ZMP/ZTP riboswitch aptamer (pfl RNA motif): an 81-nucleotide RNA from Agromyces agglutinans.
[Rfam]
Nucleotides: 081
Base pairs, nucleotide, nucleotide: 005050007048008047009046010045011044012043015040016039017069018068019067020066021065026036027035028034029033058076059075061073062072
Number, partner (000 for none) and nucleotide at each position: 001000u002000c003000g004000u005050c006000a007048g008047g009046u010045c011044g012043c013000g014000a015040c016039u017069g018068g019067c020066g021065u022000u023000g024000a025000g026036a027035u028034g029033g030000a031000c032000a033029c034028c035027a036026u037000c038000g039016g040015g041000g042000a043012g044011c045010g046009a047008c048007u049000g050005g051000u052000a053000c054000g055000g056000a057000c058076c059075g060000a061073c062072c063000g064000c065021a066020c067019g068018c069017c070000u071000g072062g073061g074000c075059c076058g077000g078000u079000a080000c081000g